Background:
This 38-nucleotide RNA sequence from Oryctolagus cuniculus belongs to the Rfam family "XIST RNA A repeat". The match comes from Rfam's covariance-model search (52 bits).

[Rfam]
RNA sequence: UAGCCCACCGGGGCUGCGGAUACCUGCUUUUAAUUUUU
Numbered sequence: 001u002a003g004c005c006c007a008c009c010g011g012g013g014c015u016g017c018g019g020a021u022a023c024c025u026g027c028u029u030u031u032a033a034u035u036u037u038u
Stems, first nucleotide, its partner, number of pairs: 003014004017026003